A member of the RNA family "c-di-GMP-I riboswitch aptamer" from Domibacillus iocasae, 86 nucleotides long. A search with the family's covariance model found it, with a score of 71 bits.
[Rfam]
RNA sequence: AAUACGAAAUGGCAAACUUGUUGAAAGGCAGGGACGCAAAGCUAAGGGCCUAAGGAACUUGAUUCUAUGGCUGCCAGGCCGCCGAA
Numbered sequence: 001a002a003u004a005c006g007a008a009a010u011g012g013c014a015a016a017c018u019u020g021u022u023g024a025a026a027g028g029c030a031g032g033g034a035c036g037c038a039a040a041g042c043u044a045a046g047g048g049c050c051u052a053a054g055g056a057a058c059u060u061g062a063u064u065c066u067a068u069g070g071c072u073g074c075c076a077g078g079c080c081g082c083c084g085a086a
Stems, first nucleotide, its partner, number of pairs: 012037002017032006041079003046075002048071003055065003
Rfam links the family to the GO term cyclic-di-GMP binding.